The family of this 67-nucleotide sequence from Poseidonocella pacifica is "Glycine riboswitch aptamer".
[Rfam]
RNA sequence: CACUCUGGAGAGAUCCCCCUAACCGGGGCGCCGACGGGAUAACGAUCUCAGGCAAAAGGACAGAGGG
Numbered sequence: 001c002a003c004u005c006u007g008g009a010g011a012g013a014u015c016c017c018c019c020u021a022a023c024c025g026g027g028g029c030g031c032c033g034a035c036g037g038g039a040u041a042a043c044g045a046u047c048u049c050a051g052g053c054a055a056a057a058g059g060a061c062a063g064a065g066g067g
Base pairs, nucleotide, nucleotide: 001067003065004064005063006062007061014028015027016026017025030053031052032051033049034048037047038046